[Rfam]
RNA sequence: GGGGGUGCACUGGCUUCGACGGGGGUUGCGAAAUUGCUUGGCGCAUGCCGAGGGGGCGACUUUCCUCGUUAAUCCAGUAGCAAACUUUUAGUUGCCAACGACGACAACUACGCUCUCGCCGCUUAAGGCGUAAGCCCCGAACCCACUUGUGCCCGUGCUCGUGGAUGUAGGGUCAUUAUCACGGAACCGGCUGUGACGGCUGCCUGUCAGUCAUGGCUUAACCGAAACAGGCUGGUUUCCGGGUGCGCUUUGCGUGCCGUGCUGCCCGGCGACGAGAUCUAACGGAACGCUAAGCAUGUAGUGCCGGGGAUGGAGUACCUUCGGACGGCGGUUCGAUUCCGCCCACCUCCACCA
Numbered sequence: 001g002g003g004g005g006u007g008c009a010c011u012g013g014c015u016u017c018g019a020c021g022g023g024g025g026u027u028g029c030g031a032a033a034u035u036g037c038u039u040g041g042c043g044c045a046u047g048c049c050g051a052g053g054g055g056g057c058g059a060c061u062u063u064c065c066u067c068g069u070u071a072a073u074c075c076a077g078u079a080g081c082a083a084a085c086u087u088u089u090a091g092u093u094g095c096c097a098a099c100g101a102c103g104a105c106a107a108c109u110a111c112g113c114u115c116u117c118g119c120c121g122c123u124u125a126a127g128g129c130g131u132a133a134g135c136c137c138c139g140a141a142c143c144c145a146c147u148u149g150u151g152c153c154c155g156u157g158c159u160c161g162u163g164g165a166u167g168u169a170g171g172g173u174c175a176u177u178a179u180c181a182c183g184g185a186a187c188c189g190g191c192u193g194u195g196a197c198g199g200c201u202g203c204c205u206g207u208c209a210g211u212c213a214u215g216g217c218u219u220a221a222c223c224g225a226a227a228c229a230g231g232c233u234g235g236u237u238u239c240c241g242g243g244u245g246c247g248c249u250u251u252g253c254g255u256g257c258c259g260u261g262c263u264g265c266c267c268g269g270c271g272a273c274g275a276g277a278u279c280u281a282a283c284g285g286a287a288c289g290c291u292a293a294g295c296a297u298g299u300a301g302u303g304c305c306g307g308g309g310a311u312g313g314a315g316u317a318c319c320u321u322c323g324g325a326c327g328g329c330g331g332u333u334c335g336a337u338u339c340c341g342c343c344c345a346c347c348u349c350c351a352c353c354a
Base pairs, nucleotide, nucleotide: 001350002349003348004347005346006345007344020323021322022321023320024319025318026317035310037308038307039306040305041304042303043302044298045297046296047295048294049068050067051066052065053064056081057080059078060077061076115134116133118131119130122127136172137171138170140168143164144163145162146161149158153184154183155182156181157180190218191216192215193214194213195212196211202232203231204230205229206228235273236272237271239269240268241267242266243265244264246261247260248259257285258284327343328342329341330340331339
The family of this 354-nucleotide RNA sequence from Pseudoxanthomonas dokdonensis is "transfer-messenger RNA".
It is annotated as a non-coding RNA gene.
Taxonomically the source falls in Pseudoxanthomonas (Bacteria, Pseudomonadati, Pseudomonadota, Lysobacteraceae).